[Rfam]
RNA sequence: AAUAAUCUUCGGGGUUGGGUGCAAUUCCCUACCGGCGGUAUAGUCCGCGACCCGUGCUUGCACGGCUGAUUCGGUGAGAUUCCGAAACCGACGGUACAGUCCGGAUGAAAGAAGAGAGCG
Dot-bracket structure: ..(..(((((......(((.......))).[[((((((....[[))))...((..........))....(((((.......)))))]])).(((....]]))).......)))))..)..
The family of this 120-nucleotide sequence from Lachnospiraceae bacterium YSD2013 is "FMN riboswitch aptamer (RFN element)".